[Rfam]
RNA sequence: UUAUGUUGUAGCUCUUUUGGAAUUGUCUAGCAGGUUUUCUGGUUUUUACUGCAAAAUGCCAUC
Numbered sequence: 001u002u003a004u005g006u007u008g009u010a011g012c013u014c015u016u017u018u019g020g021a022a023u024u025g026u027c028u029a030g031c032a033g034g035u036u037u038u039c040u041g042g043u044u045u046u047u048a049c050u051g052c053a054a055a056a057u058g059c060c061a062u063c
Stems, first nucleotide, its partner, number of pairs: 033060003036055003040051004
A member of the RNA family "U7 small nuclear RNA" from Sapajus apella, 63 nucleotides long. Animal histone pre-mRNAs are spliced by a different mechanism than nuclear pre-mRNAs and self-splicing introns. This processing involves the U7 snRNP, which contains only one RNA species: U7. Rfam 15.1 lists 10,439 matches to the family in 569 species. The family's consensus secondary structure was predicted with PFOLD. A search with the family's covariance model found it, with a score of 42 bits.